[Rfam]
RNA sequence: CUGUUCCCUGGUAACUGGCGAUAAGAGUGGAAGAACCACAAGGGAGCCUGGGAAUAAGCAGUAAACAGUCGCUCGCCUGGGCUGCUUCA
Numbered sequence: 001c002u003g004u005u006c007c008c009u010g011g012u013a014a015c016u017g018g019c020g021a022u023a024a025g026a027g028u029g030g031a032a033g034a035a036c037c038a039c040a041a042g043g044g045a046g047c048c049u050g051g052g053a054a055u056a057a058g059c060a061g062u063a064a065a066c067a068g069u070c071g072c073u074c075g076c077c078u079g080g081g082c083u084g085c086u087u088c089a
Stems, first nucleotide, its partner, number of pairs: 003055006010048003015043002017077005027039004066084005
Dot-bracket structure: ..((((((.(((..(([[[[[.....((((.....))))..))..))).))))))..........(((((..]]]]]..))))).....

Shown here is an 89-nucleotide RNA sequence from Ktedonobacter racemifer, a member of the family "ZMP/ZTP riboswitch aptamer (pfl RNA motif)". NCBI's taxonomy places the organism under Bacteria, Chloroflexota, Ktedonobacterales, Ktedonobacteraceae, Ktedonobacter racemifer. It scores 62 bits against the family's covariance model. The base pairs follow the family's consensus structure, which is taken from published work.